[Rfam]
Nucleotides: 092
Stems, first nucleotide, its partner, number of pairs: 003090002038052003
Number, partner (000 for none) and nucleotide at each position: 001000a002000a003090g004089c005000c006000a007000u008000g009000a010000u011000g012000a013000g014000u015000g016000a017000a018000g019000u020000a021000u022000a023000g024000u025000c026000u027000g028000a029000c030000c031000u032000g033000g034000u035000a036000c037000u038052g039051c040050c041000g042000c043000c044000a045000g046000u047000u048000u049000g050040g051039g052038c053000u054000u055000u056000g057000a058000c059000c060000a061000g062000g063000a064000g065000a066000u067000g068000a069000u070000c071000g072000u073000g074000u075000a076000a077000u078000c079000u080000u081000c082000u083000c084000u085000c086000u087000g088000a089004g090003c091000a092000u
The family of this 92-nucleotide sequence from Salvator merianae is "Z30 small nucleolar RNA". The base pairs follow the family's consensus structure, which was predicted with PFOLD. Gene Ontology terms of the family: RNA processing and nucleolus. By type it is a C/D-box small nucleolar RNA.